[Rfam]
RNA sequence: UUAGCCCUGCAGCGCCACCCACCAGGGUAAGAGAAACUCACUUCCUGCCCUGGCCCGAGGGACCAACUGGCUGGGC
Number, nucleotide and partner (000 for none) at each position: 001u074002u073003a072004g071005c070006c069007c000008u000009g000010c000011a000012g063013c000014g000015c060016c059017a000018c057019c000020c000021a000022c053023c052024a051025g050026g049027g048028u047029a046030a000031g044032a043033g042034a000035a000036a000037c000038u000039c000040a000041c000042u033043u032044c031045c000046u029047g028048c027049c026050c025051u024052g023053g022054c000055c000056c000057g018058a000059g016060g015061g000062a000063c012064c000065a000066a000067c000068u000069g006070g005071c004072u003073g002074g001075g000076c000
RNA: mir-874 microRNA precursor family
Organism: Ictidomys tridecemlineatus